RNA sequence: GGAAUAUAAAAAAUCGUCUCUUAACUUUUAAUUAAAAAUGUUAAGAACCAGCUCUUUAAUAUUUAAUAGCUAGUACUUAGCAUUUUUAGUUAAAAGUUAAGAGACGGUUUAUAUUCC
Numbered sequence: 001g002g003a004a005u006a007u008a009a010a011a012a013a014u015c016g017u018c019u020c021u022u023a024a025c026u027u028u029u030a031a032u033u034a035a036a037a038a039u040g041u042u043a044a045g046a047a048c049c050a051g052c053u054c055u056u057u058a059a060u061a062u063u064u065a066a067u068a069g070c071u072a073g074u075a076c077u078u079a080g081c082a083u084u085u086u087u088a089g090u091u092a093a094a095a096g097u098u099a100a101g102a103g104a105c106g107g108u109u110u111a112u113a114u115u116c117c
Stems, first nucleotide, its partner, number of pairs: 001117009013108027041080005047074001
Rfam assigns this 117-nucleotide sequence from Brassica cretica to the family "MIR9563 microRNA precursor family". Taxonomically the source falls in Brassica (Eukaryota, Viridiplantae, Euphyllophyta, malvids).